This 62-nucleotide sequence belongs to the Rfam family "nadA riboswitch".
A reference for the family is Chen et al. (2020), "Structural distinctions between NAD+ riboswitch domains 1 and 2 determine differential folding and ligand binding", Nucleic Acids Res.
Rfam's curators put it in the seed alignment.
Pairs were carried over by alignment from the consensus structure, which is taken from published work.

[Rfam]
RNA sequence: GCUUUCAACAUCCCCGUUUCGCGCGGGCCGCCUUCGGGACGGGCUGCGGCGAAACUGAAGGC
Numbered sequence: 001g002c003u004u005u006c007a008a009c010a011u012c013c014c015c016g017u018u019u020c021g022c023g024c025g026g027g028c029c030g031c032c033u034u035c036g037g038g039a040c041g042g043g044c045u046g047c048g049g050c051g052a053a054a055c056u057g058a059a060g061g062c
Base pairs, nucleotide, nucleotide: 001062002061003060004059005058006057007056013048014046016055017054018053019052020051021050022049026044028042029041030040